[Rfam]
RNA sequence: CUGACCAGCACGUAUGGGUCGACGUUAAAAAAACGAGCCCGUUCCAUCCGCUCUAAAAAAUGUGCAGAUGGAUGCGUUAUUGUCAG
Numbered sequence: 001c002u003g004a005c006c007a008g009c010a011c012g013u014a015u016g017g018g019u020c021g022a023c024g025u026u027a028a029a030a031a032a033a034c035g036a037g038c039c040c041g042u043u044c045c046a047u048c049c050g051c052u053c054u055a056a057a058a059a060a061u062g063u064g065c066a067g068a069u070g071g072a073u074g075c076g077u078u079a080u081u082g083u084c085a086g
Base pairs, nucleotide, nucleotide: 001086002085003084004083005082010077011076012075013074015041016040017039018038023035024034025033026032043072044071045070046069047068048067050065051064053062
Dot-bracket structure: (((((....((((.((((....((((.....))))..)))).((((((.((.(........).)).)))))).))))....)))))